[Rfam]
RNA sequence: UAAGAUUGAGGAGGAUAGACGGGGACGAGACAGAGCAUGAGAUGAGCUUUUAAUCCACACCAUUGAUGCUCUUCCCUUGCACUGCCUCUUCCCUGGCUCUCCUCCCUCCUCUCUCU
Numbered sequence: 001u002a003a004g005a006u007u008g009a010g011g012a013g014g015a016u017a018g019a020c021g022g023g024g025a026c027g028a029g030a031c032a033g034a035g036c037a038u039g040a041g042a043u044g045a046g047c048u049u050u051u052a053a054u055c056c057a058c059a060c061c062a063u064u065g066a067u068g069c070u071c072u073u074c075c076c077u078u079g080c081a082c083u084g085c086c087u088c089u090u091c092c093c094u095g096g097c098u099c100u101c102c103u104c105c106c107u108c109c110u111c112u113c114u115c116u
Base pairs, nucleotide, nucleotide: 017098018097020095021094022093023092024091025090028087029086031084032083033082035080036079037078039076041075044071045070
Dot-bracket structure: ................((.((((((..((.(((.(((.(.(..((........................))...)).))).))).))..)))))).))..................
The family of this 116-nucleotide sequence from Rhododendron williamsianum is "MIR408 microRNA precursor family". The source organism's lineage runs through Eukaryota, Spermatophyta, Mesangiospermae, asterids and Rhododendron. The family has 8 seed sequences and 299 matches in Rfam 15.1. Gene Ontology terms of the family: miRNA-mediated post-transcriptional gene silencing and RISC complex. A search with the family's covariance model found it, with a score of 65 bits.